RNA: Guanidine-II riboswitch aptamer (mini-ykkC)
RNA sequence: CCAGGGGGACGACCUCCCGGCCUCCACCAGGGGGACGACCUC
Numbered sequence: 001c002c003a004g005g006g007g008g009a010c011g012a013c014c015u016c017c018c019g020g021c022c023u024c025c026a027c028c029a030g031g032g033g034g035a036c037g038a039c040c041u042c
Stems, first nucleotide, its partner, number of pairs: 001020002004017005031042004